RNA sequence: GUUUUUUACCCAAGUAUCAAGGUACUAGGUGAUUCCAAAUGGCCAUCCUUUUUGGUUGUGUCAUUUACCAUAAAUUUUUGGAUCAGCAUUUUUGGGGAAUAUCCGAAAAUGCGAA
Numbered sequence: 001g002u003u004u005u006u007u008a009c010c011c012a013a014g015u016a017u018c019a020a021g022g023u024a025c026u027a028g029g030u031g032a033u034u035c036c037a038a039a040u041g042g043c044c045a046u047c048c049u050u051u052u053u054g055g056u057u058g059u060g061u062c063a064u065u066u067a068c069c070a071u072a073a074a075u076u077u078u079u080g081g082a083u084c085a086g087c088a089u090u091u092u093u094g095g096g097g098a099a100u101a102u103c104c105g106a107a108a109a110u111g112c113g114a115a
Stems, first nucleotide, its partner, number of pairs: 008033001010029001013026005040063004044058002047055002090111001092109002096104002
Annotation: A member of the RNA family "SL2 RNA" from Panagrolaimus davidi, 115 nucleotides long. The family's RNA type in Rfam is non-coding RNA gene. The base pairs follow the family's consensus structure, which is taken from published work. This family represents SL2 RNA. SL2 RNA is involved in trans splicing in lower eukaryotes. Trans-splicing is a form of RNA processing. The acquisition of a spliced leader from a SL RNA is a intra-molecular reaction which precisely joins exons derived from separately transcribed RNAs. The organism belongs to Panagrolaimus, within Eukaryota. The match comes from Rfam's covariance-model search (46 bits). Gene Ontology term of the family: mRNA trans splicing, via spliceosome.